Burkholderia RNA 7 (anti-hemB): a 90-nucleotide sequence from Acidovorax sp. CF316. The source organism's lineage runs through Bacteria, Pseudomonadati, Pseudomonadota, Betaproteobacteria and Acidovorax. Rfam classes the family as a small RNA. A reference for the family is Weinberg et al. (2007), "Identification of 22 candidate structured RNAs in bacteria using the CMfinder comparative genomics pipeline", Nucleic Acids Res. Rfam's curators write: This RNA motif was identified by computational search in b-proteobacteria Burkholderia. Co-purified with Hfq, expression confirmed by Northern blot.

RNA sequence: CCCCCGCUUUUCCUCCCUGAGCGGGGCUCUGGGCUGCCGCAAUGCAGGCAGGGCUUUCGAAGCCCGGCAGCUUUUGCCGGGCUUUUUUUU
Number, nucleotide and partner (000 for none) at each position: 001c000002c000003c025004c024005c023006g022007c021008u020009u000010u000011u000012c000013c000014u000015c000016c000017c000018u000019g000020a008021g007022c006023g005024g004025g003026g054027c053028u052029c051030u050031g049032g000033g000034c000035u000036g000037c000038c000039g000040c000041a000042a000043u000044g000045c000046a000047g000048g000049c031050a030051g029052g028053g027054c026055u000056u000057u000058c000059g000060a000061a000062g082063c081064c080065c079066g078067g077068c076069a075070g000071c000072u000073u000074u000075u069076g068077c067078c066079g065080g064081g063082c062083u000084u000085u000086u000087u000088u000089u000090u000